[Rfam]
RNA sequence: CGGGAUGUGGCGCAGCUUGGCAGCGCGCUGCCUUCGGGUGGCAGAGGCCGCCGGUUCGAAUCCGGCCAUCCCGA
Number, nucleotide and partner (000 for none) at each position: 001c073002g072003g071004g070005a069006u068007g067008u000009g000010g026011c025012g024013c023014a000015g000016c000017u000018u000019g000020g000021c000022a000023g013024c012025g011026c010027g000028c044029u043030g042031c041032c040033u000034u000035c000036g000037g000038g000039u000040g032041g031042c030043a029044g028045a000046g000047g000048c000049c000050g066051c065052c064053g063054g062055u000056u000057c000058g000059a000060a000061u000062c054063c053064g052065g051066c050067c007068a006069u005070c004071c003072c002073g001074a000

This 74-nucleotide sequence from Thermocatellispora tengchongensis belongs to the Rfam family "tRNA".
Lineage of the source: Bacteria > Bacillati > Streptosporangiales > Streptosporangiaceae > Thermocatellispora.